[Rfam]
RNA sequence: GUGCGGCCUCCGCCGAGUCCGGUACGCCCCCACGGCAUCCGGAGCCGGGGACCCGACCGACAUCGGGGUGAAUCGGCUCGACCGUCCCUCCGGACAAGGGCCGUAGGGCACGCCUUCCACAGAACGCCCGCCCGAACCCGACAGCUGACUCGGCAGGCGGCCCACGGAAGGAGUG
Dot-bracket structure: ..........((((...(((((................)))))((((((....((........))(((.....((((((..................))))))..((((....................))))...))).........)))))).))))................
RNA: c-di-AMP riboswitch aptamer (ydaO/yuaA leader)